RNA: Streptomyces sRNA 4677
RNA sequence: GUCUCCGGUCCGACCUGCGCUCCCCAUGCACUACGAACUGGGGAGAAAGCACCCCGCCAAGCCCCACCCCUCCCUCCCGCCGGGCAAACUCACUCCGGCGAGUGAAUAUGCCCAAGUGGGCUGGAUUCGGCACGGGUUGCCUGCCUUACGCUCAGCGCGACAAGGCACCACCCCCAGACAUGCGACGGCCCUCGCCGGGACUGGCAUCCCAGUGCGAGGGCCUGACCACCGAGGAAGUAGGGCUUCCCG
Numbered sequence: 001g002u003c004u005c006c007g008g009u010c011c012g013a014c015c016u017g018c019g020c021u022c023c024c025c026a027u028g029c030a031c032u033a034c035g036a037a038c039u040g041g042g043g044a045g046a047a048a049g050c051a052c053c054c055c056g057c058c059a060a061g062c063c064c065c066a067c068c069c070c071u072c073c074c075u076c077c078c079g080c081c082g083g084g085c086a087a088a089c090u091c092a093c094u095c096c097g098g099c100g101a102g103u104g105a106a107u108a109u110g111c112c113c114a115a116g117u118g119g120g121c122u123g124g125a126u127u128c129g130g131c132a133c134g135g136g137u138u139g140c141c142u143g144c145c146u147u148a149c150g151c152u153c154a155g156c157g158c159g160a161c162a163a164g165g166c167a168c169c170a171c172c173c174c175c176a177g178a179c180a181u182g183c184g185a186c187g188g189c190c191c192u193c194g195c196c197g198g199g200a201c202u203g204g205c206a207u208c209c210c211a212g213u214g215c216g217a218g219g220g221c222c223u224g225a226c227c228a229c230c231g232a233g234g235a236a237g238u239a240g241g242g243c244u245u246c247c248c249g
Stems, first nucleotide, its partner, number of pairs: 007230003017076001019074001090105006120156005187222005193216003197210004233247005